[Rfam]
This 61-nucleotide RNA from [Mannheimia] succiniciproducens belongs to the Rfam family "L31-Gammaproteobacteria ribosomal protein leader". For this family Rfam cites "Discovery of 20 novel ribosomal leader candidates in bacteria and archaea" (Eckert and Weinberg, BMC Microbiol, 2020). The family is grouped with related families in Rfam's "Ribosomal Protein L31 Leader clan". The base pairs follow the family's consensus structure, which is taken from published work.
RNA sequence: CUCGUGGUGUUUGGAAGCUCUCAGAGCUGGUCCUUAUAGCGGCGAGGCUUCAUUUUGAGGU
Numbered sequence: 001c002u003c004g005u006g007g008u009g010u011u012u013g014g015a016a017g018c019u020c021u022c023a024g025a026g027c028u029g030g031u032c033c034u035u036a037u038a039g040c041g042g043c044g045a046g047g048c049u050u051c052a053u054u055u056u057g058a059g060g061u
Base pairs, nucleotide, nucleotide: 001046002045003044004043005042007040008039013033014032015031
Dot-bracket structure: (((((.((....(((...............))).....)).)))))...............